Shown here is a 74-nucleotide sequence, a member of the family "mir-181 microRNA precursor family".

[Rfam]
RNA sequence: GGCUGCAAUCAACAUUCAUUGCUGUCGGUGGGUUUUCAUUUCUAUCAACUCACUGACCAAUGAAUGCAAACUGC
Numbered sequence: 001g002g003c004u005g006c007a008a009u010c011a012a013c014a015u016u017c018a019u020u021g022c023u024g025u026c027g028g029u030g031g032g033u034u035u036u037c038a039u040u041u042c043u044a045u046c047a048a049c050u051c052a053c054u055g056a057c058c059a060a061u062g063a064a065u066g067c068a069a070a071c072u073g074c
Stems, first nucleotide, its partner, number of pairs: 005074003013066009024057007032049003
On this family, see Ambros, Cell 2001: "microRNAs: tiny regulators with great potential". Rfam 15.1 lists 3,490 matches to the family in 650 species.